[Rfam]
RNA sequence: CCUCUGGUUCUUUUCAGAACCACUCAUACUCACAAAGGAGAUAUUU
Number, nucleotide and partner (000 for none) at each position: 001c000002c000003u000004c000005u000006g021007g020008u019009u018010c017011u016012u000013u000014u000015c000016a011017g010018a009019a008020c007021c006022a000023c000024u000025c000026a000027u000028a000029c000030u000031c000032a000033c000034a000035a000036a000037g000038g000039a000040g000041a000042u000043a000044u000045u000046u000
The record is a 46-nucleotide sequence from Acanthaster planci, which matches "Histone 3' UTR stem-loop" in Rfam. The organism belongs to Acanthaster, within Eukaryota. It scores 36 bits against the family's covariance model. The mRNAs of metazoan histone genes lack a poly-A tail. 3' end processing occurs at a site between a highly conserved stem-loop (modelled by this family) and a purine rich region around 20 nts downstream (the histone downstream element, or HDE). The stem-loop is bound by a 31 kDa stem-loop binding protein (SLBP - also termed the histone hairpin binding protein, or HBP). Together with U7 snRNA binding of the HDE, SLBP binding nucleate s the formation of the processing complex. The histone 3' UTR stem-loop is also involved in nucleocytoplasmic transport of the mRNA, and in stability regulation and translation efficiency in the cytoplasm.